[Rfam]
This 71-nucleotide RNA sequence from Spodoptera litura belongs to the Rfam family "GAIT element". The literature on the family includes a 2003 paper in Mol Cell Biol by Sampath et al., "Transcript-selective translational silencing by gamma interferon is directed by a novel structural element in the ceruloplasmin mRNA 3' untranslated region". Rfam describes the family as follows. This family represents a cis-acting element in the 3'-UTR of the ceruloplasmin (Cp) gene called gamma interferon inhibitor of translation (GAIT). The GAIT element is involved in selective translational silencing of the Cp transcript. Ceruloplasmin (Cp) is a multifunctional, copper-containing glycoprotein produced by the liver and secreted into the plasma. As an acute-phase protein, its plasma concentration can double during multiple inflammatory conditions. The family's RNA type in Rfam is cis-regulatory element.
RNA sequence: GCUCGUUGUUCAGUAAAAUUGUUUGCUGAUAAAGAAUGACUUCAAGCAAAUAAAUAAGGGAUGAAACAAAC
Numbered sequence: 001g002c003u004c005g006u007u008g009u010u011c012a013g014u015a016a017a018a019u020u021g022u023u024u025g026c027u028g029a030u031a032a033a034g035a036a037u038g039a040c041u042u043c044a045a046g047c048a049a050a051u052a053a054a055u056a057a058g059g060g061a062u063g064a065a066a067c068a069a070a071c
Stems, first nucleotide, its partner, number of pairs: 001071001003069001005067002010061002022050006032042003